Rfam assigns this 89-nucleotide RNA from Musa acuminata to the family "mir-166 microRNA precursor family". The base pairs follow the family's consensus structure, which was predicted with PFOLD. The organism belongs to Musa acuminata, within Eukaryota. The match comes from Rfam's covariance-model search (84 bits). Gene Ontology terms of the family: miRNA-mediated post-transcriptional gene silencing and RISC complex.
RNA sequence: UUUGAGGGGAAUGUUGUCUGGCUCGAGGCCUUCGUUUCUCUUACAGAUCUGUUUGAAGAGAUCUCGGACCAGGCUUCAUUCCCCCCAAU
Numbered sequence: 001u002u003u004g005a006g007g008g009g010a011a012u013g014u015u016g017u018c019u020g021g022c023u024c025g026a027g028g029c030c031u032u033c034g035u036u037u038c039u040c041u042u043a044c045a046g047a048u049c050u051g052u053u054u055g056a057a058g059a060g061a062u063c064u065c066g067g068a069c070c071a072g073g074c075u076u077c078a079u080u081c082c083c084c085c086c087a088a089u
Stems, first nucleotide, its partner, number of pairs: 002088003006084008016074006024066003